This 127-nucleotide sequence from Paenalicyclobacillus ferrooxydans belongs to the Rfam family "c-di-AMP riboswitch aptamer (ydaO/yuaA leader)".
The family has 106 seed sequences and 7,607 matches in Rfam 15.1.
A search with the family's covariance model found it, with a score of 75 bits.
[Rfam]
RNA sequence: CAAAAAUCCAGUCCGAAUCGCAAGAGCGGGGGAUUCUUUUCUGGGGUGAAUCGCGGCAUAUCGCUGCGUAGGGAAAUCCUUCAACCGAACCCGACAACUAACCUCGUAGGACGCUGAAGGAGUUAUC
Numbered sequence: 001c002a003a004a005a006a007u008c009c010a011g012u013c014c015g016a017a018u019c020g021c022a023a024g025a026g027c028g029g030g031g032g033a034u035u036c037u038u039u040u041c042u043g044g045g046g047u048g049a050a051u052c053g054c055g056g057c058a059u060a061u062c063g064c065u066g067c068g069u070a071g072g073g074a075a076a077u078c079c080u081u082c083a084a085c086c087g088a089a090c091c092c093g094a095c096a097a098c099u100a101a102c103c104u105c106g107u108a109g110g111a112c113g114c115u116g117a118a119g120g121a122g123u124u125a126u127c
Stems, first nucleotide, its partner, number of pairs: 011112004018025002026107006036043001044092003052068004071086002